A member of the RNA family "c-di-GMP-I riboswitch aptamer" from Shewanella violacea, 120 nucleotides long. The match comes from Rfam's covariance-model search (72 bits). Pairs were carried over by alignment from the consensus structure, which is taken from published work. From the family's description: GEMM was predicted in a large-scale screen for bacterial structured RNA regulatory elements. Genes associated with GEMM are involved in a diverse array of functions, including chemotaxis regulation, signal transduction, secretion and chitin. NCBI's taxonomy places the organism under Bacteria, Pseudomonadota, Alteromonadales, Shewanella, Shewanella violacea.
RNA sequence: UUGAAUAAAAGGCAAACCAAUCGAAAGAUUGGGACGCAAAGCCUCCGGUCUAAGGGGAUAGUGUUGAGGCGGUCGUUGUCUCAGUAUUAUCGCAGUACCUAAGAUAGCGGGGAUACUUCA
Numbered sequence: 001u002u003g004a005a006u007a008a009a010a011g012g013c014a015a016a017c018c019a020a021u022c023g024a025a026a027g028a029u030u031g032g033g034a035c036g037c038a039a040a041g042c043c044u045c046c047g048g049u050c051u052a053a054g055g056g057g058a059u060a061g062u063g064u065u066g067a068g069g070c071g072g073u074c075g076u077u078g079u080c081u082c083a084g085u086a087u088u089a090u091c092g093c094a095g096u097a098c099c100u101a102a103g104a105u106a107g108c109g110g111g112g113a114u115a116c117u118u119c120a
Base pairs, nucleotide, nucleotide: 012037013036017032018031019030020029021028022027040114042112043111045110046109047108048105049104050103055099056098058096